[Rfam]
RNA sequence: CGGGGGUAGGGUCGGAGGGCUCGCCCUCCUCCCCCCGUAAGGGGCCCGAAACGGGCGAAAACGCGGGGACCAGUAACCUUACACUGGACGGGACGUUGGCGGACUAUCCGUACCGCGUCAAACUCCGAUGAACCCCGCCCCGCGGGGUCCGCGGUGGCGGAGCCCCCAUCGGAGGAUGGGGGUAAACCGCCUUAACCGGGGGAACCAGGUCAGGCCCGGAAGGGAGCAGCCUAACCCCGGCCGCGGACGUUCGCGGGAGCUUAUGGGGCUGAAGGAGAAGCGCGGUACGGAUAGUCCUUAAUAACACCAACGUCCCGUCCAGUGUAAGGAGCCCCG
Number, nucleotide and partner (000 for none) at each position: 001c336002g335003g334004g333005g332006g000007u330008a000009g000010g071011g070012u069013c068014g032015g031016a030017g029018g028019g027020c000021u000022c000023g000024c000025c000026c000027u019028c018029c017030u016031c015032c014033c000034c000035c000036c000037g000038u000039a000040a000041g000042g000043g000044g000045c067046c066047c065048g064049a000050a000051a000052c000053g000054g000055g000056c000057g000058a000059a000060a000061a000062c000063g000064c048065g047066g046067g045068g013069a012070c011071c010072a000073g000074u000075a000076a000077c329078c328079u327080u326081a325082c324083a323084c322085u321086g320087g319088a318089c317090g316091g315092g314093a000094c312095g311096u310097u000098g000099g299100c000101g297102g296103a295104c294105u293106a292107u291108c290109c289110g288111u000112a286113c285114c284115g283116c282117g281118u280119c000120a000121a000122a000123c000124u275125c274126c000127g000128a000129u000130g000131a270132a000133c268134c267135c266136c265137g264138c000139c257140c256141c255142g254143c253144g252145g251146g250147g248148u247149c246150c245151g244152c000153g242154g193155u000156g191157g190158c189159g188160g187161a000162g183163c182164c181165c180166c179167c178168a177169u176170c175171g000172g000173a000174g000175g170176a169177u168178g167179g166180g165181g164182g163183u162184a000185a000186a000187c160188c159189g158190c157191c156192u000193u154194a000195a000196c240197c239198g238199g237200g236201g235202g000203a000204a000205c000206c000207a232208g231209g230210u229211c000212a000213g000214g000215c224216c223217c222218g000219g000220a000221a000222g217223g216224g215225a000226g000227c000228a000229g210230c209231c208232u207233a000234a000235c201236c200237c199238c198239g197240g196241c000242c153243g000244c151245g150246g149247a148248c147249g000250u146251u145252c144253g143254c142255g141256g140257g139258a000259g000260c000261u000262u000263a000264u137265g136266g135267g134268g133269c000270u131271g000272a000273a000274g125275g124276a000277g000278a000279a000280g118281c117282g116283c115284g114285g113286u112287a000288c110289g109290g108291a107292u106293a105294g104295u103296c102297c101298u000299u099300a000301a000302u000303a000304a000305c000306a000307c000308c000309a000310a096311c095312g094313u000314c092315c091316c090317g089318u088319c087320c086321a085322g084323u083324g082325u081326a080327a079328g078329g077330a007331g000332c005333c004334c003335c002336g001
The family of this 336-nucleotide RNA from Ignicoccus islandicus is "Archaeal signal recognition particle RNA". For this family Rfam cites "Towards the structure of the mammalian signal recognition particle" (Wild et al., Curr Opin Struct Biol, 2002). NCBI's taxonomy places the organism under Archaea, Thermoprotei, Desulfurococcaceae, Ignicoccus, Ignicoccus islandicus. Rfam links the family to the GO terms SRP-dependent cotranslational protein targeting to membrane, signal sequence recognition and signal recognition particle, plasma membrane targeting. By type it is a non-coding RNA gene.